[Rfam]
RNA sequence: AGCGAUAAACGGAUUACGGAAUAAGCCAUUCGGACCCGGGGGCGGUACCCGGCGCCUCCACCAUUUUCCUCUGGCAGCCAGCUACUGCCGGGGUUUCAGGGGGCGAAACAGGAUCGACGAGGGUGUAAAGGUCUUCUUUUCGCUCGGCAUGGUACCACCGUAUCGGACCAAUCCUAUAGAUGCCAAAAACAACAUGGCUUCUGUGGCUGCCAACGACAACGCUCCGGUUGCUUUCGCAAUCGCUGCCUAA
Numbered sequence: 001a002g003c004g005a006u007a008a009a010c011g012g013a014u015u016a017c018g019g020a021a022u023a024a025g026c027c028a029u030u031c032g033g034a035c036c037c038g039g040g041g042g043c044g045g046u047a048c049c050c051g052g053c054g055c056c057u058c059c060a061c062c063a064u065u066u067u068c069c070u071c072u073g074g075c076a077g078c079c080a081g082c083u084a085c086u087g088c089c090g091g092g093g094u095u096u097c098a099g100g101g102g103g104c105g106a107a108a109c110a111g112g113a114u115c116g117a118c119g120a121g122g123g124u125g126u127a128a129a130g131g132u133c134u135u136c137u138u139u140u141c142g143c144u145c146g147g148c149a150u151g152g153u154a155c156c157a158c159c160g161u162a163u164c165g166g167a168c169c170a171a172u173c174c175u176a177u178a179g180a181u182g183c184c185a186a187a188a189a190c191a192a193c194a195u196g197g198c199u200u201c202u203g204u205g206g207c208u209g210c211c212a213a214c215g216a217c218a219a220c221g222c223u224c225c226g227g228u229u230g231c232u233u234u235c236g237c238a239a240u241c242g243c244u245g246c247c248u249a250a
Stems, first nucleotide, its partner, number of pairs: 001144005016132002026123002030120003036052005053105007145160003
RNA: permuted transfer-messenger RNA
Organism: Parvibaculaceae bacterium